A member of the RNA family "Glm Y RNA activator of glmS mRNA" from Rouxiella badensis, 168 nucleotides long. The family's consensus secondary structure is taken from published work. This family consists of a number of bacterial RNA genes of around 167 bases in length. The family is grouped with related families in Rfam's "Glm clan". For this family Rfam cites "Computational identification of noncoding RNAs in E. coli by comparative genomics" (Rivas et al., Curr Biol, 2001).
RNA sequence: GGUUGCUCAUUCACCCCGUUAUAAAUGCCUCUGCAGGACUUUCUGCAAUCUGCGCUCAUAACAUUAGAAUGACGCCAUAGAAAAGGUGCCUAUCGUUCACCAGACCGAUAUCGUUGCUCCGGCAAUCUUAUCAAGCAUCGAACGACACGUUGAGUGAGGCACCACCUC
Numbered sequence: 001g002g003u004u005g006c007u008c009a010u011u012c013a014c015c016c017c018g019u020u021a022u023a024a025a026u027g028c029c030u031c032u033g034c035a036g037g038a039c040u041u042u043c044u045g046c047a048a049u050c051u052g053c054g055c056u057c058a059u060a061a062c063a064u065u066a067g068a069a070u071g072a073c074g075c076c077a078u079a080g081a082a083a084a085g086g087u088g089c090c091u092a093u094c095g096u097u098c099a100c101c102a103g104a105c106c107g108a109u110a111u112c113g114u115u116g117c118u119c120c121g122g123c124a125a126u127c128u129u130a131u132c133a134a135g136c137a138u139c140g141a142a143c144g145a146c147a148c149g150u151u152g153a154g155u156g157a158g159g160c161a162c163c164a165c166c167u168c
Stems, first nucleotide, its partner, number of pairs: 005075002007072006019061004024056001026054003085163007094144005107132004146156003